[Rfam]
This 77-nucleotide sequence belongs to the Rfam family "nadA riboswitch". For this family Rfam cites "Structure and ligand binding of the ADP-binding domain of the NAD(+) riboswitch" (Huang et al., RNA, 2020). The sequence is in the family's curated seed alignment. The family's RNA type in Rfam is small RNA.
RNA sequence: GGCUUCAACAUCCCCGCCGGUUGGGCGUCGCCUUCUUGGGUUAGCUUAAGAAGACGUGCAGUGAAUCGACUGGAGCC
Dot-bracket structure: (((((((.....[[.(.((((((.(((.(..........................)))).])]))))).))))))))